RNase E 5' UTR element: a 341-nucleotide RNA sequence from Serratia sp. DD3. The base pairs follow the family's consensus structure, which is taken from published work. This family represents a conserved element found in the 5' UTR of RNase E mRNA. RNase E is a key regulatory enzyme in the pathway of mRNA degradation in E. coli that is able to auto-regulate the degradation of its own mRNA in response to changes in RNase E activity. This rne 5' UTR element acts as a sensor of cellular RNase E concentration enabling tight regulation of RNase E concentration and synthesis.
[Rfam]
RNA sequence: CUUUCCGUGCUGAUUCCCAUUAACAUGGGGAAAAUUGUGGAAUUAUAUAGUUUGUCUGAUAGCACAAAAGCGCAGCAAUGGCGUAAGACGCAAUGUGAAAUCAAACAAUUAGCGGGCUGCGGGUUGCAGCUUGGCCGCUAGAUGGAAUCAGAUCUGUCAACAUAAGUCAGAGGCUAUUCCCAGAGUUAAAAAGCGCUGUUUUUCAAAAAGAAAUUCAGGCUUGCCGAAAUUAUGCGCCCCUAUGCAAGCGACAACCGUGAGGUUGACGACUUUGCGAGAUGACACGGGGUUUUCGGUUGAACACGGCCAUGAAGUGAUUGUGCCCGCAGCUUUGUCGAUAA
Numbered sequence: 001c002u003u004u005c006c007g008u009g010c011u012g013a014u015u016c017c018c019a020u021u022a023a024c025a026u027g028g029g030g031a032a033a034a035u036u037g038u039g040g041a042a043u044u045a046u047a048u049a050g051u052u053u054g055u056c057u058g059a060u061a062g063c064a065c066a067a068a069a070g071c072g073c074a075g076c077a078a079u080g081g082c083g084u085a086a087g088a089c090g091c092a093a094u095g096u097g098a099a100a101u102c103a104a105a106c107a108a109u110u111a112g113c114g115g116g117c118u119g120c121g122g123g124u125u126g127c128a129g130c131u132u133g134g135c136c137g138c139u140a141g142a143u144g145g146a147a148u149c150a151g152a153u154c155u156g157u158c159a160a161c162a163u164a165a166g167u168c169a170g171a172g173g174c175u176a177u178u179c180c181c182a183g184a185g186u187u188a189a190a191a192a193g194c195g196c197u198g199u200u201u202u203u204c205a206a207a208a209a210g211a212a213a214u215u216c217a218g219g220c221u222u223g224c225c226g227a228a229a230u231u232a233u234g235c236g237c238c239c240c241u242a243u244g245c246a247a248g249c250g251a252c253a254a255c256c257g258u259g260a261g262g263u264u265g266a267c268g269a270c271u272u273u274g275c276g277a278g279a280u281g282a283c284a285c286g287g288g289g290u291u292u293u294c295g296g297u298u299g300a301a302c303a304c305g306g307c308c309a310u311g312a313a314g315u316g317a318u319u320g321u322g323c324c325c326g327c328a329g330c331u332u333u334g335u336c337g338a339u340a341a
Base pairs, nucleotide, nucleotide: 003042004041005040006039007038008037014032015031016030017029018028052108053107054106055105057103058102059101063097064096065095066094070091071090072089075082076081114332115331116330117329118328119327120326121325122324123323124322132309133308134307135306136305137304144180145179146178147177148176153171154170155169156168192221193220194219196218197217198216201213202212203211204210223297224296225295226294227293236290237289238288239287240286249268250267252265253264254263255262256261
Dot-bracket structure: ..((((((.....(((((.........)))))....)))))).........((((.(((...((((...(((..((....))......)))..))))...))).)))).....(((((((((((.......((((((......(((((....((((...........))))....)))))...........(((.(((..((((.....))))..)))))).(((((........(((((........((.(((((....))))).)).................)))))..)))))......))))))............))))))))))).........